The record is a 114-nucleotide RNA sequence from Streptomyces filipinensis, which matches "ALIL pseudoknot" in Rfam. The match comes from Rfam's covariance-model search (78 bits). The literature on the family includes a 2008 paper in J Biol Chem by Mazauric et al., "Apical loop-internal loop RNA pseudoknots: a new type of stimulator of -1 translational frameshifting in bacteria".

RNA sequence: GGCUUUCUUCGCGCGGGAGCUCGACCCGCGACUGCCGAGAUGACCGCGUUCGUCGACGAGGUGCGGGAGGAGCUCGGGGUCGAGCCGGUCUGCGAGGUGCUGCAGUUCGCUCCG
Numbered sequence: 001g002g003c004u005u006u007c008u009u010c011g012c013g014c015g016g017g018a019g020c021u022c023g024a025c026c027c028g029c030g031a032c033u034g035c036c037g038a039g040a041u042g043a044c045c046g047c048g049u050u051c052g053u054c055g056a057c058g059a060g061g062u063g064c065g066g067g068a069g070g071a072g073c074u075c076g077g078g079g080u081c082g083a084g085c086c087g088g089u090c091u092g093c094g095a096g097g098u099g100c101u102g103c104a105g106u107u108c109g110c111u112c113c114g
Stems, first nucleotide, its partner, number of pairs: 013029005075114005086109002090105005